Glycine riboswitch aptamer: a 95-nucleotide RNA sequence from Nocardia nova. Rfam describes the family as follows. This family represents the bacterial glycine riboswitch. The pairing is the family consensus, mapped onto this sequence. The match comes from Rfam's covariance-model search (64 bits).

Nucleotides: 095
Base pairs, nucleotide, nucleotide: 006090007089008088009087010086011085012084013083020036021035022034023033038074039073040072041070042069045068046067047066052061053060
Number, partner (000 for none) and nucleotide at each position: 001000c002000g003000c004000a005000a006090c007089c008088g009087u010086g011085c012084g013083g014000g015000a016000g017000a018000g019000u020036u021035c022034c023033g024000g025000a026000u027000u028000c029000g030000a031000u032000c033023c034022g035021g036020g037000c038074g039073c040072c041070g042069a043000a044000g045068g046067a047066g048000c049000a050000a051000c052061a053060c054000c055000u056000c057000c058000c059000c060053g061052u062000c063000a064000a065000u066047c067046u068045c069042u070041c071000a072040g073039g074038c075000a076000c077000c078000a079000g080000g081000g082000a083013c084012c085011g086010u087009g088008c089007g090006g091000a092000g093000u094000c095000c